This 54-nucleotide RNA from Collichthys lucidus belongs to the Rfam family "UnaL2 LINE 3' element".
For this family Rfam cites "Solution structure of an RNA stem-loop derived from the 3' conserved region of eel LINE UnaL2" (Baba et al., RNA, 2004).
The organism belongs to Collichthys, within Eukaryota.
The family's consensus secondary structure is taken from published work.
The family has 30 seed sequences and 493,311 matches in Rfam 15.1.
A search with the family's covariance model found it, with a score of 62 bits.

RNA sequence: UAUGUCCUCCUCUGUAAGUCGCUUUGGAUAAAAGCGUCUGCUAAAUGUAUGUAA
Number, nucleotide and partner (000 for none) at each position: 001u000002a000003u000004g000005u000006c000007c000008u000009c000010c000011u000012c000013u043014g041015u040016a039017a000018g000019u000020c036021g035022c034023u033024u032025u031026g000027g000028a000029u000030a000031a025032a024033a023034g022035c021036g020037u000038c000039u016040g015041c014042u000043a013044a000045a000046u000047g000048u000049a000050u000051g000052u000053a000054a000